[Rfam]
RNA sequence: AUAUACAAAGAUAAAAACACAGUUCUGGUUGGUAGUCCAGACGCAGUUAUACUGUCAGUAACCUGCCUCCUUGGUUGUCCAUUCUUUGUUCAUUAGAA
Numbered sequence: 001a002u003a004u005a006c007a008a009a010g011a012u013a014a015a016a017a018c019a020c021a022g023u024u025c026u027g028g029u030u031g032g033u034a035g036u037c038c039a040g041a042c043g044c045a046g047u048u049a050u051a052c053u054g055u056c057a058g059u060a061a062c063c064u065g066c067c068u069c070c071u072u073g074g075u076u077g078u079c080c081a082u083u084c085u086u087u088g089u090u091c092a093u094u095a096g097a098a
Base pairs, nucleotide, nucleotide: 005089006088007087008086009085010084011083022042023041025040026039027038028037043055044054045053046052047051065075066074067073
A member of the RNA family "azaaromatic riboswitch aptamer (yjdF RNA)" from Clostridium neonatale, 98 nucleotides long.